Background:
This 52-nucleotide RNA sequence from Pipistrellus kuhlii belongs to the Rfam family "mir-1302 microRNA precursor family". Rfam links the family to the GO terms RISC complex and miRNA-mediated post-transcriptional gene silencing. On this family, see Morin et al., Genome Res 2008: "Application of massively parallel sequencing to microRNA profiling and discovery in human embryonic stem cells". A search with the family's covariance model found it, with a score of 66 bits. Taxonomically the source falls in Pipistrellus (Eukaryota, Deuterostomia, Gnathostomata, Boreoeutheria).
RNA sequence: GUUUCAGUAUAAAUAUGUCCCAUGCAAUGUUUGGGAAAUAUUUAUCCUAAAA
Numbered sequence: 001g002u003u004u005c006a007g008u009a010u011a012a013a014u015a016u017g018u019c020c021c022a023u024g025c026a027a028u029g030u031u032u033g034g035g036a037a038a039u040a041u042u043u044a045u046c047c048u049a050a051a052a
Base pairs, nucleotide, nucleotide: 006048007047009045010044011043012042014040015039016038018036019035020034021033022031